The record is a 79-nucleotide RNA from Mus musculus, which matches "Small nucleolar RNA SNORD115" in Rfam. Rfam links the family to the GO terms nucleolus and RNA processing. The base pairs follow the family's consensus structure, which was predicted with PFOLD. For this family Rfam cites "Identification of brain-specific and imprinted small nucleolar RNA genes exhibiting an unusual genomic organization" (Cavaille et al., Proc Natl Acad Sci U S A, 2000). A search with the family's covariance model found it, with a score of 90 bits. The organism belongs to Mus, within Eukaryota.
RNA sequence: GGGUCAAUGAUGACAACACAAUGUCAUGAAGAAAGGUGAUGACAUAAAAUUCAUGCUCAAUAGGAUUAUGCUGAGGCCC
Numbered sequence: 001g002g003g004u005c006a007a008u009g010a011u012g013a014c015a016a017c018a019c020a021a022u023g024u025c026a027u028g029a030a031g032a033a034a035g036g037u038g039a040u041g042a043c044a045u046a047a048a049a050u051u052c053a054u055g056c057u058c059a060a061u062a063g064g065a066u067u068a069u070g071c072u073g074a075g076g077c078c079c
Base pairs, nucleotide, nucleotide: 001079002078003077004076005073006072008070009069